[Rfam]
A member of the RNA family "Bacterial RNase P class A" from Neptuniibacter caesariensis, 362 nucleotides long. Taxonomically the source falls in Neptuniibacter (Bacteria, Pseudomonadati, Oceanospirillales, Oceanospirillaceae). The sequence is in the family's curated seed alignment. It is annotated as a ribozyme.
RNA sequence: GGAGUUUGCCAGGCAGUCGCUGCCCUUUCGGGGGUGGAGGAAAGUCCGGGCUCCAAAGGGUAGAGUGCCAGAUAACGUCUGGGCGGCGCGAGUCGACGGAAAGUGCAGCAGAAAAUAUACCGCCUACGUAUCUCGAUUUUCGGAUCGGGAUGCCGGUAAGGUUGAAAUGGUGCGGUAAGAGCGCACCGCGUGGGUGGCAACAUUCCACGGCAUGGUAAACCCCACUCGGAGCAAGACCAAAUAGGGUUCCUAUAGGCGUGACCCGCGCUGGAACCGGGUAGGUUGCUUGAGGCCUGUAGCGAUGCAGGUCCUAGAUGAAUGACUGUCCACGACAGAACCCGGCUUACCGGCAAACUCCUCAU
Numbered sequence: 001g002g003a004g005u006u007u008g009c010c011a012g013g014c015a016g017u018c019g020c021u022g023c024c025c026u027u028u029c030g031g032g033g034g035u036g037g038a039g040g041a042a043a044g045u046c047c048g049g050g051c052u053c054c055a056a057a058g059g060g061u062a063g064a065g066u067g068c069c070a071g072a073u074a075a076c077g078u079c080u081g082g083g084c085g086g087c088g089c090g091a092g093u094c095g096a097c098g099g100a101a102a103g104u105g106c107a108g109c110a111g112a113a114a115a116u117a118u119a120c121c122g123c124c125u126a127c128g129u130a131u132c133u134c135g136a137u138u139u140u141c142g143g144a145u146c147g148g149g150a151u152g153c154c155g156g157u158a159a160g161g162u163u164g165a166a167a168u169g170g171u172g173c174g175g176u177a178a179g180a181g182c183g184c185a186c187c188g189c190g191u192g193g194g195u196g197g198c199a200a201c202a203u204u205c206c207a208c209g210g211c212a213u214g215g216u217a218a219a220c221c222c223c224a225c226u227c228g229g230a231g232c233a234a235g236a237c238c239a240a241a242u243a244g245g246g247u248u249c250c251u252a253u254a255g256g257c258g259u260g261a262c263c264c265g266c267g268c269u270g271g272a273a274c275c276g277g278g279u280a281g282g283u284u285g286c287u288u289g290a291g292g293c294c295u296g297u298a299g300c301g302a303u304g305c306a307g308g309u310c311c312u313a314g315a316u317g318a319a320u321g322a323c324u325g326u327c328c329a330c331g332a333c334a335g336a337a338c339c340c341g342g343c344u345u346a347c348c349g350g351c352a353a354a355c356u357c358c359u360c361a362u
Base pairs, nucleotide, nucleotide: 001358002357003356004355005354006353007352008351009350010349012327013326014325015324016323017322018321020037021036022035023034024033025032026031042345043344044343046342047341048340049339050338051231052230053229054228058264059263060262061261063227064226065225066224067223068082069081070080071079072078083097084095085094086093087092098222099221103220104219105216106215120161121160122157123156124155128153129152130151131150132149133148134147135146136145137144138143169187170186171185172184173183174182188211189209190208191207192206193205194203195202196201235284236283237282238281245275246274247273248272249271250270255269256268257267258266259265291310292309293308294307295306296305297304298303